[Rfam]
RNA sequence: CUGACAGUAAUGAUGAACUGUCUGUAAACCCUAUAAGGGGAUAGACAUUUCUGAUAACCUGCUCAG
Dot-bracket structure: ((((..........(((.((((((.....(((.....))).)))))).)))...........))))